RNA: SAH (S-adenosyl-L-homocysteine) riboswitch aptamer
RNA sequence: CUGGUCGAGAGGCGCUGCAACGGACGUCGAGUCCGCCACGCUCGACCAGGUGCCACCACCGCAAGGGCGCCUCUCAUGA
Numbered sequence: 001c002u003g004g005u006c007g008a009g010a011g012g013c014g015c016u017g018c019a020a021c022g023g024a025c026g027u028c029g030a031g032u033c034c035g036c037c038a039c040g041c042u043c044g045a046c047c048a049g050g051u052g053c054c055a056c057c058a059c060c061g062c063a064a065g066g067g068c069g070c071c072u073c074u075c076a077u078g079a
Stems, first nucleotide, its partner, number of pairs: 002048007021035005